Alpha operon ribosome binding site: a 112-nucleotide sequence from Vibrio palustris. The family's RNA type in Rfam is cis-regulatory element. The bacterial alpha operon ribosome binding site is surrounded by this complex pseudoknotted structure. A reference for the family is Schlax et al. (2001), "Translational repression of the Escherichia coli alpha operon mRNA: importance of an mRNA conformational switch and a ternary entrapment complex", J Biol Chem. The source organism's lineage runs through Bacteria, Pseudomonadati, Pseudomonadota, Vibrionales and Vibrio.
RNA sequence: AAGAAGUAGUAUACCGCAGCGUAUCCUCAACGGGCUCUGCUGCGGGUAAUUCUUUAUAUAAAGUACCUAGGAGUGAAUAGUGGCCCGUAUAGCAGGCAUUAACAUUCCUGAU
Numbered sequence: 001a002a003g004a005a006g007u008a009g010u011a012u013a014c015c016g017c018a019g020c021g022u023a024u025c026c027u028c029a030a031c032g033g034g035c036u037c038u039g040c041u042g043c044g045g046g047u048a049a050u051u052c053u054u055u056a057u058a059u060a061a062a063g064u065a066c067c068u069a070g071g072a073g074u075g076a077a078u079a080g081u082g083g084c085c086c087g088u089a090u091a092g093c094a095g096g097c098a099u100u101a102a103c104a105u106u107c108c109u110g111a112u
Stems, first nucleotide, its partner, number of pairs: 004055003008051003012048003025096003031087004040110001